[Rfam]
RNA sequence: GAUAAGGGAGGUGAGAAGCCUUCCCGCCGAAAGCCCAAGGUUUCCAGGGGAAGGCAAGUCCGCCCUGGGUUAGCCGGCCCCUAAGGCGAGGCCGAAAGGCGUAGCCGAUGGGAAACGGGUCAACAAUCCCGUGCCACUGCGGUGGAGCGAUGGGGGUGACGCAGUAGGAUAGCCCGACCCGGUUGAUGGUAGAGCCGGGCCAAGGUAGUAGGGGGGAGGAGCAGGCAAAUCCGCUCCUCCAUAACCCCGAGAACUGACGGGGAGGCCCAUAAAGGGCCGAAGCGGGUGACUCCACACUGCCGAGAAAGAACCUCUAAGCUAUGAAGCUGCAGUGACCGUACCGCAAACCGACACAGGUGGGCGGGUGUAAAAGCACCAAGGCGUU
Numbered sequence: 001g002a003u004a005a006g007g008g009a010g011g012u013g014a015g016a017a018g019c020c021u022u023c024c025c026g027c028c029g030a031a032a033g034c035c036c037a038a039g040g041u042u043u044c045c046a047g048g049g050g051a052a053g054g055c056a057a058g059u060c061c062g063c064c065c066u067g068g069g070u071u072a073g074c075c076g077g078c079c080c081c082u083a084a085g086g087c088g089a090g091g092c093c094g095a096a097a098g099g100c101g102u103a104g105c106c107g108a109u110g111g112g113a114a115a116c117g118g119g120u121c122a123a124c125a126a127u128c129c130c131g132u133g134c135c136a137c138u139g140c141g142g143u144g145g146a147g148c149g150a151u152g153g154g155g156g157u158g159a160c161g162c163a164g165u166a167g168g169a170u171a172g173c174c175c176g177a178c179c180c181g182g183u184u185g186a187u188g189g190u191a192g193a194g195c196c197g198g199g200c201c202a203a204g205g206u207a208g209u210a211g212g213g214g215g216g217a218g219g220a221g222c223a224g225g226c227a228a229a230u231c232c233g234c235u236c237c238u239c240c241a242u243a244a245c246c247c248c249g250a251g252a253a254c255u256g257a258c259g260g261g262g263a264g265g266c267c268c269a270u271a272a273a274g275g276g277c278c279g280a281a282g283c284g285g286g287u288g289a290c291u292c293c294a295c296a297c298u299g300c301c302g303a304g305a306a307a308g309a310a311c312c313u314c315u316a317a318g319c320u321a322u323g324a325a326g327c328u329g330c331a332g333u334g335a336c337c338g339u340a341c342c343g344c345a346a347a348c349c350g351a352c353a354c355a356g357g358u359g360g361g362c363g364g365g366u367g368u369a370a371a372a373g374c375a376c377c378a379a380g381g382c383g384u385u
Base pairs, nucleotide, nucleotide: 006024007023008022009021010020011019025383026382027381028380033362034361035360036359039342040341044068045067046066047065048064049063053061054060075338076337077336080111081110085106086105087104089102091100092099093098115132116131117130118129119128135334136333137332138331139330140329141328142327143326147319148318152315153314154313155312156311157310161300162299163298164297167293168292169291172287173286174285175284176283178199179198180197181196182195183194200260201259204255205254206253211248212247213246216239217238218237219236220235221234222233224232225231264278265277266276267275268274348357349356364377365376366375367374
RNA: Bacterial large subunit ribosomal RNA, nucleotides 1344 to 1728
Organism: Desulfurobacterium indicum